[Rfam]
RNA sequence: CUCUUAUCGAGAGAAGGGGAGGGACUGGCCCUGUGAACCUUCAGCAACCUGACCGACGUCAAGGUGCUAAUUCCAGACAAGCGGUUCGCUUGAAAGAUAAGAA
Numbered sequence: 001c002u003c004u005u006a007u008c009g010a011g012a013g014a015a016g017g018g019g020a021g022g023g024a025c026u027g028g029c030c031c032u033g034u035g036a037a038c039c040u041u042c043a044g045c046a047a048c049c050u051g052a053c054c055g056a057c058g059u060c061a062a063g064g065u066g067c068u069a070a071u072u073c074c075a076g077a078c079a080a081g082c083g084g085u086u087c088g089c090u091u092g093a094a095a096g097a098u099a100a101g102a103a
Stems, first nucleotide, its partner, number of pairs: 002102007013042005021031003025076004043068004048064002050061004072095001078092006
The record is a 103-nucleotide RNA from Anoxybacteroides amylolyticum, which matches "SAM riboswitch aptamer (S box leader)" in Rfam. Gene Ontology term of the family: regulation of gene expression.